HNH endonuclease-associated RNA and ORF (HEARO) RNA: a 235-nucleotide RNA from Scytonema hofmannii. For this family Rfam cites "Exceptional structured noncoding RNAs revealed by bacterial metagenome analysis" (Weinberg et al., Nature, 2009). The family's RNA type in Rfam is non-coding RNA gene.
RNA sequence: GUAAGCAACCUCCGGCUUAAGACCGGAGGCUUCAGCCAGACUCGUUCUGAUUGAAGCCGAGCUUACCAGACUAUCAGUAGUUUACUACUGGGUUUACAUUAAGUGUUAAAGCUCUCACCUACGGAUGCGUAGCCAGUUCGUAGCACUGAAACCAAGCAAUUAAACAAGCAUAACGGUUUAAAGCUAGUGUUGUUUGGAAAGUACCGGAUGUAAACAAAGUCGAGGCUCACAUUAC
Numbered sequence: 001g002u003a004a005g006c007a008a009c010c011u012c013c014g015g016c017u018u019a020a021g022a023c024c025g026g027a028g029g030c031u032u033c034a035g036c037c038a039g040a041c042u043c044g045u046u047c048u049g050a051u052u053g054a055a056g057c058c059g060a061g062c063u064u065a066c067c068a069g070a071c072u073a074u075c076a077g078u079a080g081u082u083u084a085c086u087a088c089u090g091g092g093u094u095u096a097c098a099u100u101a102a103g104u105g106u107u108a109a110a111g112c113u114c115u116c117a118c119c120u121a122c123g124g125a126u127g128c129g130u131a132g133c134c135a136g137u138u139c140g141u142a143g144c145a146c147u148g149a150a151a152c153c154a155a156g157c158a159a160u161u162a163a164a165c166a167a168g169c170a171u172a173a174c175g176g177u178u179u180a181a182a183g184c185u186a187g188u189g190u191u192g193u194u195u196g197g198a199a200a201g202u203a204c205c206g207g208a209u210g211u212a213a214a215c216a217a218a219g220u221c222g223a224g225g226c227u228c229a230c231a232u233u234a235c
Stems, first nucleotide, its partner, number of pairs: 001066006010029002012026002016021001030056006069221004076089005092215009115149002119143008131227004152197009164188002167185003171181001173179001